[Rfam]
RNA: Small nucleolar RNA SNORD59
RNA sequence: UCUUCAGUGAUGAAUAACACAGUGACUUUCGUUCUUCUGAGCCUAUUGAAGCCAGCCUUUGUGUCCUGAAAUGAAGA
Numbered sequence: 001u002c003u004u005c006a007g008u009g010a011u012g013a014a015u016a017a018c019a020c021a022g023u024g025a026c027u028u029u030c031g032u033u034c035u036u037c038u039g040a041g042c043c044u045a046u047u048g049a050a051g052c053c054a055g056c057c058u059u060u061g062u063g064u065c066c067u068g069a070a071a072u073g074a075a076g077a
Stems, first nucleotide, its partner, number of pairs: 001077003005073001